Annotation:
This 172-nucleotide RNA sequence from Candidatus Accumulibacter regalis belongs to the Rfam family "Group II catalytic intron D1-D4-3". Taxonomically the source falls in Candidatus Accumulibacter (Bacteria, Pseudomonadati, Pseudomonadota, Betaproteobacteria). It scores 103 bits against the family's covariance model. The base pairs follow the family's consensus structure. Its family is annotated with Group II intron splicing in the Gene Ontology.

RNA sequence: ACGAGGGCGACCGAGUGUGGGGAGGAAGCGUGGAGCGAAACCGCGAGCCGAUGGACAAGAACCAGAUACGAGGCGCAGCCGAGCAGGGCGAGCGGGCAACGAUCCGCGAAGCUCUCGUGGCCAAGGCUCAGGCGGCGUAAAUCUGGCGGCUGUGCGGGGAAGGAUCGCGUUC
Numbered sequence: 001a002c003g004a005g006g007g008c009g010a011c012c013g014a015g016u017g018u019g020g021g022g023a024g025g026a027a028g029c030g031u032g033g034a035g036c037g038a039a040a041c042c043g044c045g046a047g048c049c050g051a052u053g054g055a056c057a058a059g060a061a062c063c064a065g066a067u068a069c070g071a072g073g074c075g076c077a078g079c080c081g082a083g084c085a086g087g088g089c090g091a092g093c094g095g096g097c098a099a100c101g102a103u104c105c106g107c108g109a110a111g112c113u114c115u116c117g118u119g120g121c122c123a124a125g126g127c128u129c130a131g132g133c134g135g136c137g138u139a140a141a142u143c144u145g146g147c148g149g150c151u152g153u154g155c156g157g158g159g160a161a162g163g164a165u166c167g168c169g170u171u172c
Stems, first nucleotide, its partner, number of pairs: 001016002005012002028172001030170003036163001041157005046151005062146006073138003079131001081129004086114004092107004